Shown here is a 90-nucleotide RNA from Dendrobium nobile, a member of the family "mir-160 microRNA precursor family". The source organism's lineage runs through Eukaryota, Streptophytina, Tracheophyta, Euphyllophyta and Dendrobium. Gene Ontology terms of the family: RISC complex and miRNA-mediated post-transcriptional gene silencing. For this family Rfam cites "Prediction of plant microRNA targets" (Rhoades et al., Cell, 2002).

RNA sequence: CAAUGCCUGGCUCCCUGUAUGCCACACGUGUGGACCUGUCCAUUCUCAGAGAUUGGCCAUCUCGGGUGGCAUGCGAGGAGCCAAGCAUUC
Numbered sequence: 001c002a003a004u005g006c007c008u009g010g011c012u013c014c015c016u017g018u019a020u021g022c023c024a025c026a027c028g029u030g031u032g033g034a035c036c037u038g039u040c041c042a043u044u045c046u047c048a049g050a051g052a053u054u055g056g057c058c059a060u061c062u063c064g065g066g067u068g069g070c071a072u073g074c075g076a077g078g079a080g081c082c083a084a085g086c087a088u089u090c
Stems, first nucleotide, its partner, number of pairs: 002089005008083007016075009027064002